Rfam assigns this 140-nucleotide RNA from Alteribacillus iranensis to the family "Ribosomal protein L20 leader". Pairs were carried over by alignment from the consensus structure, which was predicted with CMfinder. The literature on the family includes a 1994 paper in Prog Nucleic Acid Res Mol Biol by Zengel and Lindahl, "Diverse mechanisms for regulating ribosomal protein synthesis in Escherichia coli". A search with the family's covariance model found it, with a score of 73 bits. This family is a putative r-protein leader autoregulatory structure found in B. subtilis and other low-GC Gram-positive bacteria. It is located in the 5' untranslated regions of mRNAs encoding initiation factor 3 followed by ribosomal proteins L35 and L20 (infC-rpmI-rplT).
RNA sequence: CAACGCAAGCAGAAGCGCCCGCUUCUCACCUGAUCGACGCACAUAGCUGUUGGCAGGUAGGAUGGUAAUUAUUUAAUUAUCGGAAUGACGAUGAUAAAUACCAGUGGGCGCCUUAUGUGCGCCCGCUUUUUUUGUGCCUG
Numbered sequence: 001c002a003a004c005g006c007a008a009g010c011a012g013a014a015g016c017g018c019c020c021g022c023u024u025c026u027c028a029c030c031u032g033a034u035c036g037a038c039g040c041a042c043a044u045a046g047c048u049g050u051u052g053g054c055a056g057g058u059a060g061g062a063u064g065g066u067a068a069u070u071a072u073u074u075a076a077u078u079a080u081c082g083g084a085a086u087g088a089c090g091a092u093g094a095u096a097a098a099u100a101c102c103a104g105u106g107g108g109c110g111c112c113u114u115a116u117g118u119g120c121g122c123c124c125g126c127u128u129u130u131u132u133u134g135u136g137c138c139u140g
Base pairs, nucleotide, nucleotide: 011026012025013024014023015022016021028058029057030056036051037050038049039047040046103127104126105125106124107123108122109121110120111119